[Rfam]
RNA sequence: AGUGAGGAUAGAGGCGCAAAGACAUUAGUACACAAUAUGAGGAGAAUGAGGUCCUAUGAUCAUUGUGGAAAGGGGAAUUUGCCGAAGUGGAUAGAAUCUCAUGUUCUUGAAGCUGGUUCUGCUAUUGAAUAAAUGCAGGACUGUCAUAUAGGGAACUAUAUGGAGGGCUAUCUUUCGC
Numbered sequence: 001a002g003u004g005a006g007g008a009u010a011g012a013g014g015c016g017c018a019a020a021g022a023c024a025u026u027a028g029u030a031c032a033c034a035a036u037a038u039g040a041g042g043a044g045a046a047u048g049a050g051g052u053c054c055u056a057u058g059a060u061c062a063u064u065g066u067g068g069a070a071a072g073g074g075g076a077a078u079u080u081g082c083c084g085a086a087g088u089g090g091a092u093a094g095a096a097u098c099u100c101a102u103g104u105u106c107u108u109g110a111a112g113c114u115g116g117u118u119c120u121g122c123u124a125u126u127g128a129a130u131a132a133a134u135g136c137a138g139g140a141c142u143g144u145c146a147u148a149u150a151g152g153g154a155a156c157u158a159u160a161u162g163g164a165g166g167g168c169u170a171u172c173u174u175u176c177g178c
Base pairs, nucleotide, nucleotide: 006173007172008171009170010169011168016082017081018080019079020078023074031067032066033065034064035063036062086114087113088112093107094106095105096104097103115142116141117140118139119138120137121136122135125132144163145162146161147160148159149158150157
RNA: Lysine riboswitch aptamer